[Rfam]
Shown here is a 76-nucleotide RNA from Cyprinus carpio, a member of the family "Small nucleolar RNA SNORD59". The organism belongs to Cyprinus carpio, within Eukaryota. Rfam classes the family as a C/D-box small nucleolar RNA. For this family Rfam cites "Purified box C/D snoRNPs are able to reproduce site-specific 2'-O-methylation of target RNA in vitro" (Galardi et al., Mol Cell Biol, 2002). The match comes from Rfam's covariance-model search (74 bits). The family's consensus secondary structure was predicted with ILM. Clan: SNORD59 clan.
RNA sequence: UCUUCUGUGAUGAAUUAACAUUUGACUUUCGUUCUUCUGAAUUUGUCCUGAAGCCAGUUCAUUUGUUCUGAGAAGA
Numbered sequence: 001u002c003u004u005c006u007g008u009g010a011u012g013a014a015u016u017a018a019c020a021u022u023u024g025a026c027u028u029u030c031g032u033u034c035u036u037c038u039g040a041a042u043u044u045g046u047c048c049u050g051a052a053g054c055c056a057g058u059u060c061a062u063u064u065g066u067u068c069u070g071a072g073a074a075g076a
Base pairs, nucleotide, nucleotide: 001076002075003074005072